[Rfam]
RNA sequence: GCAGACACACUCUGUUCUUUGCUGCGCACUCCAGCUUGGGACUUUUUCUGUCUGCUACAUGAAGCGCAGAUUGUAACCCUGUACCUGCCUUCUAAAAGGGCGGGGUCCGUUCAUUCUGCCACAUCAGC
Numbered sequence: 001g002c003a004g005a006c007a008c009a010c011u012c013u014g015u016u017c018u019u020u021g022c023u024g025c026g027c028a029c030u031c032c033a034g035c036u037u038g039g040g041a042c043u044u045u046u047u048c049u050g051u052c053u054g055c056u057a058c059a060u061g062a063a064g065c066g067c068a069g070a071u072u073g074u075a076a077c078c079c080u081g082u083a084c085c086u087g088c089c090u091u092c093u094a095a096a097a098g099g100g101c102g103g104g105g106u107c108c109g110u111u112c113a114u115u116c117u118g119c120c121a122c123a124u125c126a127g128c
Stems, first nucleotide, its partner, number of pairs: 001055006014042005022034003066119005072113001073111001076106007